This 85-nucleotide RNA from Medicago truncatula belongs to the Rfam family "MIR2617 microRNA precursor family". The base pairs follow the family's consensus structure, which was predicted with RNAalifold. The organism belongs to Medicago, within Eukaryota. Its family is annotated with miRNA-mediated post-transcriptional gene silencing and RISC complex in the Gene Ontology.
RNA sequence: AAGUAGUGUGACAUUCCGUUUAUGUUGAAAUACUCUGAUGUUUAUGUAAAAAUUUUAUGUUUGGAAAACGGGGUGUUACACUAAU
Numbered sequence: 001a002a003g004u005a006g007u008g009u010g011a012c013a014u015u016c017c018g019u020u021u022a023u024g025u026u027g028a029a030a031u032a033c034u035c036u037g038a039u040g041u042u043u044a045u046g047u048a049a050a051a052a053u054u055u056u057a058u059g060u061u062u063g064g065a066a067a068a069c070g071g072g073g074u075g076u077u078a079c080a081c082u083a084a085u
Stems, first nucleotide, its partner, number of pairs: 002085001004083017